Shown here is a 117-nucleotide RNA from Eragrostis curvula, a member of the family "Small nucleolar RNA Z278".
snoZ278 is a C/D box small nucleolar RNA. Its methylation guide targets have not been reported.
A search with the family's covariance model found it, with a score of 95 bits.
A reference for the family is Chen et al. (2003), "The high diversity of snoRNAs in plants: identification and comparative study of 120 snoRNA genes from Oryza sativa", Nucleic Acids Res.
The family's consensus secondary structure was predicted with PFOLD.

RNA sequence: ACCAUUGAUGAAUCGCCCAUUGUUUAGAGGCUGCAACCGGCUCUAAGUUCCUGCUUGUCAGGAAGAACCUACUUGGAGCUGCUGCACUCGCAUGACAGCACCGGGCAAUCCUGAGGU
Numbered sequence: 001a002c003c004a005u006u007g008a009u010g011a012a013u014c015g016c017c018c019a020u021u022g023u024u025u026a027g028a029g030g031c032u033g034c035a036a037c038c039g040g041c042u043c044u045a046a047g048u049u050c051c052u053g054c055u056u057g058u059c060a061g062g063a064a065g066a067a068c069c070u071a072c073u074u075g076g077a078g079c080u081g082c083u084g085c086a087c088u089c090g091c092a093u094g095a096c097a098g099c100a101c102c103g104g105g106c107a108a109u110c111c112u113g114a115g116g117u
Stems, first nucleotide, its partner, number of pairs: 001117003049063005